The record is an 85-nucleotide RNA, which matches "c-di-GMP-II-GAG riboswitch aptamer" in Rfam. Rfam links the family to the GO terms cyclic-di-GMP binding and regulation of gene expression. A reference for the family is Weinberg et al. (2017), "Bioinformatic analysis of riboswitch structures uncovers variant classes with altered ligand specificity", Proc Natl Acad Sci U S A. The sequence is in the family's curated seed alignment.
RNA sequence: UCGUGCGUGGGCGGCUUGGACACGCGGCCCAAACACUGGCCGCCGGGACCGCGCCGAGCUACUGGCGAGACCGACCUGCGUUGAU
Numbered sequence: 001u002c003g004u005g006c007g008u009g010g011g012c013g014g015c016u017u018g019g020a021c022a023c024g025c026g027g028c029c030c031a032a033a034c035a036c037u038g039g040c041c042g043c044c045g046g047g048a049c050c051g052c053g054c055c056g057a058g059c060u061a062c063u064g065g066c067g068a069g070a071c072c073g074a075c076c077u078g079c080g081u082u083g084a085u
Base pairs, nucleotide, nucleotide: 005081006080007079008078009077010076011075013060014059015058023053024052025051026050027049029047038072039071041067042066043065044064